Annotation:
A member of the RNA family "Bacterial small signal recognition particle RNA" from Alteromonas confluentis, 97 nucleotides long.
[Rfam]
RNA sequence: CCUUGGUCCUCUCGCAAUGAUACUCUGUGAACUCGGUCAGGCCCGGAAGGGAGCAGCCGCAGCAGACGACUCAUGUGCCGGGAUGUGGCUGGGGCCC
Numbered sequence: 001c002c003u004u005g006g007u008c009c010u011c012u013c014g015c016a017a018u019g020a021u022a023c024u025c026u027g028u029g030a031a032c033u034c035g036g037u038c039a040g041g042c043c044c045g046g047a048a049g050g051g052a053g054c055a056g057c058c059g060c061a062g063c064a065g066a067c068g069a070c071u072c073a074u075g076u077g078c079c080g081g082g083a084u085g086u087g088g089c090u091g092g093g094g095c096c097c
Base pairs, nucleotide, nucleotide: 004091005090006089007088008087010083011082012081013080014079015075017074018073019072020071024066025065026064027063028062034059035058036057037056042051043050044049

The match comes from Rfam's covariance-model search (69 bits).
NCBI's taxonomy places the organism under Bacteria, Pseudomonadati, Gammaproteobacteria, Alteromonadales, Alteromonas.